[Rfam]
RNA sequence: GUCACCGUGAGGUGGGGUGGGAAGGAAGCCGGAGGCAAAUCCCUGCACCGAGGGACACGAACCACAUAGAAGGCAUUCCGGUCGGGGUAAGGCUGCUGAAGAAGCUGAAGCCCGUUCCACCGAAACGGCCGGGGUGUAAAUGCGGCGGGGGCAGGGGGAAAGUAAAUGUU
Dot-bracket structure: .(((((....)))))............(.((...((...(((((((.(((...........((.(((.....(((.(((((((.((((..((((........))))...)))).............))))))).)))..))).))))).).))))))....))...)).)
Source information: The family of this 170-nucleotide RNA from Crystallibacter crystallopoietes is "Group II catalytic intron D1-D4-3". Lineage of the source: Bacteria > Bacillati > Micrococcales > Crystallibacter > Crystallibacter crystallopoietes. For this family Rfam cites "The ins and outs of group II introns" (Bonen and Vogel, Trends Genet, 2001). Rfam 15.1 lists 4,274 matches to the family in 1,585 species. The pairing is the family consensus, mapped onto this sequence.